[Rfam]
RNA sequence: UGAGGCUCAGGACUUGUAACAGCAACUCCAUGUGGAAAGUGGAUACAAUAUUCCAGUGGAGAUGCUGUUAUUUGUGUUGGGCUU
Numbered sequence: 001u002g003a004g005g006c007u008c009a010g011g012a013c014u015u016g017u018a019a020c021a022g023c024a025a026c027u028c029c030a031u032g033u034g035g036a037a038a039g040u041g042g043a044u045a046c047a048a049u050a051u052u053c054c055a056g057u058g059g060a061g062a063u064g065c066u067g068u069u070a071u072u073u074g075u076g077u078u079g080g081g082c083u084u
Stems, first nucleotide, its partner, number of pairs: 010077001012075001016071008026061006033055003
Dot-bracket structure: .........(.(...((((((((..((((((.(((.................)))))))))..))))))))...).).......

The family of this 84-nucleotide RNA from Leptobrachium leishanense is "mir-194 microRNA precursor family". Its family is annotated with RISC complex and miRNA-mediated post-transcriptional gene silencing in the Gene Ontology.